[Rfam]
Nucleotides: 063
Base pairs, nucleotide, nucleotide: 001061002060003059004058005057009050010049011048012047013046021045022044023043029038030037031036
Number, partner (000 for none) and nucleotide at each position: 001061a002060u003059u004058g005057u006000g007000g008000a009050g010049c011048g012047u013046u014000a015000u016000a017000u018000a019000a020000a021045c022044u023043u024000a025000a026000g027000u028000a029038g030037c031036c032000a033000a034000a035000u036031g037030g038029u039000g040000a041000a042000c043023a044022a045021g046013a047012a048011c049010g050009c051000u052000g053000u054000g055000a056000a057005a058004c059003a060002a061001u062000a063000a
A member of the RNA family "RAGATH-18 RNA", 63 nucleotides long. The sequence is in the family's curated seed alignment. The base pairs follow the family's consensus structure, which is taken from published work. Actinobacteria, Firmicutes, Fusobacteria, Thermotogae (1 example).